The record is a 94-nucleotide RNA sequence from Actibacterium naphthalenivorans, which matches "Rhodo-rpoB RNA" in Rfam. The match comes from Rfam's covariance-model search (62 bits).
RNA sequence: GGUUCGGGAGCAGCCGGUGGGACGGCUGCAGGAAUGGAAUCUGACCCCCUUCAUUCGUGAGCGGAGCGUUGCUGUGGCCCGACGGCAUGGCGCG
Numbered sequence: 001g002g003u004u005c006g007g008g009a010g011c012a013g014c015c016g017g018u019g020g021g022a023c024g025g026c027u028g029c030a031g032g033a034a035u036g037g038a039a040u041c042u043g044a045c046c047c048c049c050u051u052c053a054u055u056c057g058u059g060a061g062c063g064g065a066g067c068g069u070u071g072c073u074g075u076g077g078c079c080c081g082a083c084g085g086c087a088u089g090g091c092g093c094g
Stems, first nucleotide, its partner, number of pairs: 001041005010029007066093004070087005

Taxonomically the source falls in Actibacterium (Bacteria, Pseudomonadati, Pseudomonadota, Roseobacteraceae).